[Rfam]
RNA sequence: AGCUCUAUGAUCGAAUGCCGUUUAGGCAAUAUACGCUAUUCCGAUUGUUAAAUGACUGGAAAAUAAAACUUGAAUGAGAGCU
Numbered sequence: 001a002g003c004u005c006u007a008u009g010a011u012c013g014a015a016u017g018c019c020g021u022u023u024a025g026g027c028a029a030u031a032u033a034c035g036c037u038a039u040u041c042c043g044a045u046u047g048u049u050a051a052a053u054g055a056c057u058g059g060a061a062a063a064u065a066a067a068a069c070u071u072g073a074a075u076g077a078g079a080g081c082u
Base pairs, nucleotide, nucleotide: 001082002081003080004079005078
The family of this 82-nucleotide sequence from Cynara cardunculus is "Small nucleolar RNA U54". From the family's description: U54 is a C/D box small nucleolar RNA, which acts as a methylation guide for 18S ribosomal RNA in plants. Gene Ontology terms of the family: nucleolus and RNA processing. The family's consensus secondary structure was predicted with PFOLD. The match comes from Rfam's covariance-model search (54 bits). For this family Rfam cites "The high diversity of snoRNAs in plants: identification and comparative study of 120 snoRNA genes from Oryza sativa" (Chen et al., Nucleic Acids Res, 2003). Its Rfam clan is "U54 clan".